The record is a 136-nucleotide RNA from Spirilliplanes yamanashiensis, which matches "c-di-AMP riboswitch aptamer (ydaO/yuaA leader)" in Rfam.
RNA sequence: CGGCGGCCGCCGCCUAAUCGCCUCCGGGCGAGCCGGGGAACCACCGUCCCAUGGGGUGAAUCCGCGUCCGCGCGGUAGGGAUCGCUUCCGUCCCGAACCCGUCAGCUAACUCGGUCGGCGGCCGACGGAAGGAAGA
Numbered sequence: 001c002g003g004c005g006g007c008c009g010c011c012g013c014c015u016a017a018u019c020g021c022c023u024c025c026g027g028g029c030g031a032g033c034c035g036g037g038g039a040a041c042c043a044c045c046g047u048c049c050c051a052u053g054g055g056g057u058g059a060a061u062c063c064g065c066g067u068c069c070g071c072g073c074g075g076u077a078g079g080g081a082u083c084g085c086u087u088c089c090g091u092c093c094c095g096a097a098c099c100c101g102u103c104a105g106c107u108a109a110c111u112c113g114g115u116c117g118g119c120g121g122c123c124g125a126c127g128g129a130a131g132g133a134a135g136a
Stems, first nucleotide, its partner, number of pairs: 011120004018031003032115006042053002054100003062075004078094004
Record summary: It scores 84 bits against the family's covariance model. The source organism's lineage runs through Bacteria, Actinomycetes, Micromonosporales, Micromonosporaceae and Spirilliplanes.